This 69-nucleotide sequence from Beta vulgaris belongs to the Rfam family "Plastid-clpP 5UTR RNA".
The base pairs follow the family's consensus structure, which was predicted with LocARNA.
Rfam describes the family as follows. Plastid clpP is a non-coding RNA (ncRNA) recognised in plastids.
It is annotated as a cis-regulatory element.
A reference for the family is Richter et al. (2023), "Retrograde signaling in plants: A critical review focusing on the GUN pathway and beyond", Plant Commun.
A search with the family's covariance model found it, with a score of 81 bits.
[Rfam]
RNA sequence: AAUUAGGUUUAUAGGAACAAAGAGAAACAAAUAUAUUCUAUACCCGAUAAGUAGCAAUACACAAUGGGG
Numbered sequence: 001a002a003u004u005a006g007g008u009u010u011a012u013a014g015g016a017a018c019a020a021a022g023a024g025a026a027a028c029a030a031a032u033a034u035a036u037u038c039u040a041u042a043c044c045c046g047a048u049a050a051g052u053a054g055c056a057a058u059a060c061a062c063a064a065u066g067g068g069g
Base pairs, nucleotide, nucleotide: 003022004021007018008017009016010015043068044067045066051060052059053058